[Rfam]
Background: A member of the RNA family "Small nucleolar RNA SNORD35" from Alligator mississippiensis, 97 nucleotides long. Its family is annotated with RNA processing and nucleolus in the Gene Ontology. It scores 63 bits against the family's covariance model. It is annotated as a C/D-box small nucleolar RNA. Rfam's curators write: U35 is a C/D box snoRNA located in intron 6 of ribosomal protein L13A and intron 3 of ribosomal protein S11 in humans and at homologous positions in mouse and chicken ribosomal protein genes. U35 guides the methylation of 2'-O-ribose sites in 28S rRNA. Pairs were carried over by alignment from the consensus structure, which was predicted with PFOLD. For this family Rfam cites "Intron-encoded, antisense small nucleolar RNAs: the characterization of nine novel species points to their direct role as guides for the 2'-O-ribose methylation of rRNAs" (Nicoloso et al., J Mol Biol, 1996).
RNA sequence: UGGUGAUGAUGUCUAAACUCACGAUGGUCUGCAGAGCCCCUGCUGUGCGCUUGGGGGCUGCUGAAAAUGCCAAUGGAGCUCUUGCUGAACCAUAAAG
Numbered sequence: 001u002g003g004u005g006a007u008g009a010u011g012u013c014u015a016a017a018c019u020c021a022c023g024a025u026g027g028u029c030u031g032c033a034g035a036g037c038c039c040c041u042g043c044u045g046u047g048c049g050c051u052u053g054g055g056g057g058c059u060g061c062u063g064a065a066a067a068u069g070c071c072a073a074u075g076g077a078g079c080u081c082u083u084g085c086u087g088a089a090c091c092a093u094a095a096a097g
Stems, first nucleotide, its partner, number of pairs: 001092004